[Rfam]
RNA sequence: CGCGUGACCGGAUUCAUCCAUCGUAUAUCUCCGGCAACAGGGCCGGAGGUCUCUACCAGGAACCGUUGAAUUCCUGACUACGAGGAUGUGGCUUGCCCAC
Numbered sequence: 001c002g003c004g005u006g007a008c009c010g011g012a013u014u015c016a017u018c019c020a021u022c023g024u025a026u027a028u029c030u031c032c033g034g035c036a037a038c039a040g041g042g043c044c045g046g047a048g049g050u051c052u053c054u055a056c057c058a059g060g061a062a063c064c065g066u067u068g069a070a071u072u073c074c075u076g077a078c079u080a081c082g083a084g085g086a087u088g089u090g091g092c093u094u095g096c097c098c099a100c
Stems, first nucleotide, its partner, number of pairs: 019085001021083005029048007057076006
Dot-bracket structure: ..................(.(((((...(((((((......)))))))........((((((........))))))..))))).)...............

Purine riboswitch aptamer: a 100-nucleotide RNA sequence from Cohnella candida. From the family's description: Riboswitches are metabolite binding domains within certain messenger RNAs that serve as precision sensors for their corresponding targets. NCBI's taxonomy places the organism under Bacteria, Bacillati, Caryophanales, Paenibacillaceae, Cohnella.